Annotation
The family of this 149-nucleotide sequence from Paracoccus seriniphilus is "Ruegeria cis2 sRNA". Gene Ontology term of the family: regulation of gene expression. By type it is a small RNA. NCBI's taxonomy places the organism under Bacteria, Pseudomonadati, Rhodobacterales, Paracoccaceae, Paracoccus.

[Rfam]
RNA sequence: GUUUUGUGCGGCGAAUAGUUGACGAACAAGAAGCCGCGCUCCUGAUCGAUGAUGUGGAAAAGCGGGUUCCAGAUGAACCAGGGCAUCAUGAAAUUGGGCAGGACAUUGGCGACGAACAUCUUGCCCGAGGCGAACAUGUUGAUGCGCUG
Numbered sequence: 001g002u003u004u005u006g007u008g009c010g011g012c013g014a015a016u017a018g019u020u021g022a023c024g025a026a027c028a029a030g031a032a033g034c035c036g037c038g039c040u041c042c043u044g045a046u047c048g049a050u051g052a053u054g055u056g057g058a059a060a061a062g063c064g065g066g067u068u069c070c071a072g073a074u075g076a077a078c079c080a081g082g083g084c085a086u087c088a089u090g091a092a093a094u095u096g097g098g099c100a101g102g103a104c105a106u107u108g109g110c111g112a113c114g115a116a117c118a119u120c121u122u123g124c125c126c127g128a129g130g131c132g133a134a135c136a137u138g139u140u141g142a143u144g145c146g147c148u149g
Stems, first nucleotide, its partner, number of pairs: 002031006010023001012021003033053001035051002037048002040045001061148004066078004082143001084141002087138004094130002097126002099123005106115003

The match comes from Rfam's covariance-model search (94 bits).
A reference for the family is Rivers et al. (2016), "Experimental Identification of Small Non-Coding RNAs in the Model Marine Bacterium Ruegeria pomeroyi DSS-3", Front Microbiol.